This 252-nucleotide RNA sequence from Virgibacillus salexigens belongs to the Rfam family "BsrG". On this family, see Saito et al., Gene 2008: "Novel small RNA-encoding genes in the intergenic regions of Bacillus subtilis". NCBI's taxonomy places the organism under Bacteria, Bacillota, Bacilli, Bacillaceae, Virgibacillus. Its family is annotated with autolysis and toxin activity in the Gene Ontology. A search with the family's covariance model found it, with a score of 86 bits. Pairs were carried over by alignment from the consensus structure, which was predicted with WAR.
RNA sequence: UACAAUAUGGCUUUCGUGGGUGGCGGUUUCACUCCCUGACUGAAUUGCAGGAGAGGGGGUGAUGCCUAUGACAGUGUUUGAAGCGCUUGUGCUGAUGAUCUCGUUUGGUUCAUUAGUUGUUGCAUUGCUGUCACAAAAAAAAUAACCACCCAUAAGCCUGGCAAGCAUAGUGGGUAGUUAUUUUCUAUAAACUGUGUGAGCCGCCCCCUUGAAGGGCUAUUGUACAUGGCCGAUGGUGUACCAGCACCAUCG
Numbered sequence: 001u002a003c004a005a006u007a008u009g010g011c012u013u014u015c016g017u018g019g020g021u022g023g024c025g026g027u028u029u030c031a032c033u034c035c036c037u038g039a040c041u042g043a044a045u046u047g048c049a050g051g052a053g054a055g056g057g058g059g060u061g062a063u064g065c066c067u068a069u070g071a072c073a074g075u076g077u078u079u080g081a082a083g084c085g086c087u088u089g090u091g092c093u094g095a096u097g098a099u100c101u102c103g104u105u106u107g108g109u110u111c112a113u114u115a116g117u118u119g120u121u122g123c124a125u126u127g128c129u130g131u132c133a134c135a136a137a138a139a140a141a142a143u144a145a146c147c148a149c150c151c152a153u154a155a156g157c158c159u160g161g162c163a164a165g166c167a168u169a170g171u172g173g174g175u176a177g178u179u180a181u182u183u184u185c186u187a188u189a190a191a192c193u194g195u196g197u198g199a200g201c202c203g204c205c206c207c208c209u210u211g212a213a214g215g216g217c218u219a220u221u222g223u224a225c226a227u228g229g230c231c232g233a234u235g236g237u238g239u240a241c242c243a244g245c246a247c248c249a250u251c252g
Base pairs, nucleotide, nucleotide: 001224002223003222004221005220007218008203009202010201011200012199013198015156016153017152018151019150020149022146029062030061031060033058034057035056036055037054070132071131072130073129074128075127076126084097085096108123109122167186205216206215207214231252232251233250234249235248236247237246238245239244